[Rfam]
RNA sequence: ACCAUCCUCUUCUUGAGGCUGCGCUACUGUCCAAGGAGCAUGUAGUGAGGGCAGUACUGCUGACACCUGCACAACACGCUCACAUCAACUAGAGUUUUGCUUUAUAUUUGUGUAAUUAUGGAAAA
Numbered sequence: 001a002c003c004a005u006c007c008u009c010u011u012c013u014u015g016a017g018g019c020u021g022c023g024c025u026a027c028u029g030u031c032c033a034a035g036g037a038g039c040a041u042g043u044a045g046u047g048a049g050g051g052c053a054g055u056a057c058u059g060c061u062g063a064c065a066c067c068u069g070c071a072c073a074a075c076a077c078g079c080u081c082a083c084a085u086c087a088a089c090u091a092g093a094g095u096u097u098u099g100c101u102u103u104a105u106a107u108u109u110g111u112g113u114a115a116u117u118a119u120g121g122a123a124a125a
Stems, first nucleotide, its partner, number of pairs: 006018004021060003026055007038046002082113004087108001090104006
The record is a 125-nucleotide RNA sequence from Otolemur garnettii, which matches "U4atac minor spliceosomal RNA" in Rfam. U4atac is an essential component of the minor U12-type spliceosome complex which is required for removal of the rarer class of eukaryotic introns (AT-AC, U12-type). The base pairs follow the family's consensus structure, which is taken from published work.